[Rfam]
RNA: Group II catalytic intron D1-D4-3
Organism: Bacillus sp. B1-b2
RNA sequence: UCCAUGGUAACACGGAAUCUGAAGGAAGCUCUAGAUAAAUCCUUGGGCUGAGGGACAAGAAUCCCAUUUGAGGUUUCUAUCACAGGAUGAGUUUGCAAAACAAAACAAAGUCCAAAAUAUCCCCAGAUGAGAUAGGGAUAAAUGUUGCAGAUAGAAUGAGGAGACAGUGGAUGAU
Numbered sequence: 001u002c003c004a005u006g007g008u009a010a011c012a013c014g015g016a017a018u019c020u021g022a023a024g025g026a027a028g029c030u031c032u033a034g035a036u037a038a039a040u041c042c043u044u045g046g047g048c049u050g051a052g053g054g055a056c057a058a059g060a061a062u063c064c065c066a067u068u069u070g071a072g073g074u075u076u077c078u079a080u081c082a083c084a085g086g087a088u089g090a091g092u093u094u095g096c097a098a099a100a101c102a103a104a105a106c107a108a109a110g111u112c113c114a115a116a117a118u119a120u121c122c123c124c125a126g127a128u129g130a131g132a133u134a135g136g137g138a139u140a141a142a143u144g145u146u147g148c149a150g151a152u153a154g155a156a157u158g159a160g161g162a163g164a165c166a167g168u169g170g171a172u173g174a175u
Base pairs, nucleotide, nucleotide: 001016002015003014005012006011028175030173032171035168036167040162041161042160043159044158045157046152048150049149050148062147065144066143067142073139074138075137077135078134079133080132081131083129085113086112087111088110091106092105093104094103